[Rfam]
RNA sequence: GCGGGAGGAAGCUCACUGUAGAGGUCACGUGCUGAGUGCCUAGUCACUCCACCAGUCAUCUCGGGGAAGGUCUGAGACAAGAGCCAAUAGCUGUCCUCACAGGACAUCAUCUGAUCCAGAUGAGCGAGUGCACAGACACUGUGGAGCCAUAGCGGGUUGCUGAGCGCACGAGACGUCGGUAACAGCCGAAACAGUGCAGUUACCGACUGAUGCGGCUCUCGCGCGGCUUUGGAAACGCUCGCGGCUGGCGAAUGAGUGCGAUGUGUGAGCUGGUCCACGUGACCGGAACCCAAUUCAGACUACUCUCCCCCUGC
Numbered sequence: 001g002c003g004g005g006a007g008g009a010a011g012c013u014c015a016c017u018g019u020a021g022a023g024g025u026c027a028c029g030u031g032c033u034g035a036g037u038g039c040c041u042a043g044u045c046a047c048u049c050c051a052c053c054a055g056u057c058a059u060c061u062c063g064g065g066g067a068a069g070g071u072c073u074g075a076g077a078c079a080a081g082a083g084c085c086a087a088u089a090g091c092u093g094u095c096c097u098c099a100c101a102g103g104a105c106a107u108c109a110u111c112u113g114a115u116c117c118a119g120a121u122g123a124g125c126g127a128g129u130g131c132a133c134a135g136a137c138a139c140u141g142u143g144g145a146g147c148c149a150u151a152g153c154g155g156g157u158u159g160c161u162g163a164g165c166g167c168a169c170g171a172g173a174c175g176u177c178g179g180u181a182a183c184a185g186c187c188g189a190a191a192c193a194g195u196g197c198a199g200u201u202a203c204c205g206a207c208u209g210a211u212g213c214g215g216c217u218c219u220c221g222c223g224c225g226g227c228u229u230u231g232g233a234a235a236c237g238c239u240c241g242c243g244g245c246u247g248g249c250g251a252a253u254g255a256g257u258g259c260g261a262u263g264u265g266u267g268a269g270c271u272g273g274u275c276c277a278c279g280u281g282a283c284c285g286g287a288a289c290c291c292a293a294u295u296c297a298g299a300c301u302a303c304u305c306u307c308c309c310c311c312u313g314c
Base pairs, nucleotide, nucleotide: 001314002313003312004311007308008307009306012269013268014267015266016265021062022061023060024059034049035048036047037046038045039043072298073297074296075295076294082246083245084244085243092106093105094104095103096102107123108122109121110120111119112118124242125241126240127239128238129237130236145228146227147226270286271285272284273283274282275281